A member of the RNA family "EcpR1" from Ancylobacter tetraedralis, 108 nucleotides long.
Perviously named SmelC291, SmrC10, or Sra33.
On this family, see Wilms et al., RNA Biol 2012: "Deep sequencing uncovers numerous small RNAs on all four replicons of the plant pathogen Agrobacterium tumefaciens".
The family's RNA type in Rfam is small RNA.
NCBI's taxonomy places the organism under Bacteria, Alphaproteobacteria, Hyphomicrobiales, Xanthobacteraceae, Ancylobacter.

Nucleotides: 108
Base pairs, nucleotide, nucleotide: 003049004048005047006046007045008044009043010042016039017038018037019036020035021034052103053102054101055100056099057098058097059096060095061094062093
Number, partner (000 for none) and nucleotide at each position: 001000u002000u003049g004048c005047c006046c007045u008044g009043c010042g011000g012000a013000g014000u015000g016039c017038u018037c019036g020035g021034g022000u023000c024000c025000g026000c027000c028000g029000c030000a031000u032000c033000u034021c035020c036019u037018g038017g039016g040000u041000c042010c043009g044008u045007a046006g047005g048004g049003u050000u051000c052103g053102g054101u055100c056099g057098g058097c059096g060095g061094g062093c063000g064000g065000u066000g067000g068000u069000g070000u071000u072000g073000g074000a075000u076000g077000g078000c079000c080000u081000c082000u083000c084000c085000u086000c087000a088000c089000c090000a091000c092000u093062g094061c095060c096059u097058g098057c099056c100055g101054a102053u103052c104000a105000c106000c107000g108000a